[Rfam]
RNA sequence: GAAUACUAUUACAUAUAUACUUAGUAUAUACUAUACAUAUAGUAUUGUGACAGUAAUCCAACUUGGUACGAGAGGAUUAGUUGGUUCAGACAUUUGGUACAGCAAUUGGUUGACAAACCAGUGUUGCGAAGCUAAGUCUGUUGGAUAAUGGCUGAACGCCUCUUAAGCCAGAAACCAUGCUGAUUAAACAAUACUAUCUCGUUCUUUUUUGUUUCUUCUUUUACCGCCGAUGUAAAAGAGAAAUUAUAUAUGUACUCUUUCAUGGGGUACAUAAAUAAUCCUAUCACCUUUUUCGUGAGCUGAUGUUCGUGAGCUGUGAGCUGAUAAUGCAAAUUGUUAGUUUGUAGUUUCUGGGCUAUGUGAGCUGUGAGCUAGGCAAUAGUUCUUUAACAACAAAAAAGAAUUGCACAAAUUGUAGACGACUUUUUUGCCUCGGGGUGCUGUAAACAUGAAAGUAAACUUUGUUUUACGAUCUGUUGAGGCUUAUCCUCAGUGGUAAAGUGUUU
Numbered sequence: 001g002a003a004u005a006c007u008a009u010u011a012c013a014u015a016u017a018u019a020c021u022u023a024g025u026a027u028a029u030a031c032u033a034u035a036c037a038u039a040u041a042g043u044a045u046u047g048u049g050a051c052a053g054u055a056a057u058c059c060a061a062c063u064u065g066g067u068a069c070g071a072g073a074g075g076a077u078u079a080g081u082u083g084g085u086u087c088a089g090a091c092a093u094u095u096g097g098u099a100c101a102g103c104a105a106u107u108g109g110u111u112g113a114c115a116a117a118c119c120a121g122u123g124u125u126g127c128g129a130a131g132c133u134a135a136g137u138c139u140g141u142u143g144g145a146u147a148a149u150g151g152c153u154g155a156a157c158g159c160c161u162c163u164u165a166a167g168c169c170a171g172a173a174a175c176c177a178u179g180c181u182g183a184u185u186a187a188a189c190a191a192u193a194c195u196a197u198c199u200c201g202u203u204c205u206u207u208u209u210u211g212u213u214u215c216u217u218c219u220u221u222u223a224c225c226g227c228c229g230a231u232g233u234a235a236a237a238g239a240g241a242a243a244u245u246a247u248a249u250a251u252g253u254a255c256u257c258u259u260u261c262a263u264g265g266g267g268u269a270c271a272u273a274a275a276u277a278a279u280c281c282u283a284u285c286a287c288c289u290u291u292u293u294c295g296u297g298a299g300c301u302g303a304u305g306u307u308c309g310u311g312a313g314c315u316g317u318g319a320g321c322u323g324a325u326a327a328u329g330c331a332a333a334u335u336g337u338u339a340g341u342u343u344g345u346a347g348u349u350u351c352u353g354g355g356c357u358a359u360g361u362g363a364g365c366u367g368u369g370a371g372c373u374a375g376g377c378a379a380u381a382g383u384u385c386u387u388u389a390a391c392a393a394c395a396a397a398a399a400a401g402a403a404u405u406g407c408a409c410a411a412a413u414u415g416u417a418g419a420c421g422a423c424u425u426u427u428u429u430g431c432c433u434c435g436g437g438g439u440g441c442u443g444u445a446a447a448c449a450u451g452a453a454a455g456u457a458a459a460c461u462u463u464g465u466u467u468u469a470c471g472a473u474c475u476g477u478u479g480a481g482g483c484u485u486a487u488c489c490u491c492a493g494u495g496g497u498a499a500a501g502u503g504u505u506u
Base pairs, nucleotide, nucleotide: 041195042194043193044192045191046190047189048188051182052181053180054179056086058084059083060082061081062080063079087140088139089138090137091136095134096133097132102127103126104125105124106121107120108119109118110117111116142177143176144175149170150169151168152167153166203402204401205400206399207398208397209396210395211394212393213392406504407503408502409501411427412426415423431496432495434493436490437489438488440483441482447477448476449475452473455470456469457468458467459466
This 506-nucleotide part of an RNA from Plasmodium gonderi belongs to the Rfam family "Eukaryotic large subunit ribosomal RNA". A search with the family's covariance model found it, with a score of 2482 bits. Rfam 15.1 lists 107,465 matches to the family in 2,616 species. The organism belongs to Plasmodium, within Eukaryota.